[Rfam]
Nucleotides: 095
Base pairs, nucleotide, nucleotide: 005086006085007084008083009082010081018077019076020075021074022073023072024071026069027068028067029066030065031064032063034057036053037052038051039050040049041048042047
Number, partner (000 for none) and nucleotide at each position: 001000a002000c003000u004000u005086g006085c007084c008083u009082g010081u011000g012000u013000a014000u015000a016000g017000a018077u019076g020075g021074u022073g023072u024071u025000c026069a027068g028067c029066a030065c031064c032063a033000a034057g035000g036053a037052c038051a039050g040049g041048c042047a043000u044000a045000c046000u047042u048041g049040c050039c051038u052037g053036u054000g055000u056000g057034u058000g059000u060000g061000g062000a063032u064031g065030g066029u067028g068027u069026u070000c071024a072023g073022u074021a075020c076019c077018a078000a079000g080000g081010a082009c083008a084007g085006g086005c087000u088000a089000u090000a091000a092000g093000a094000u095000u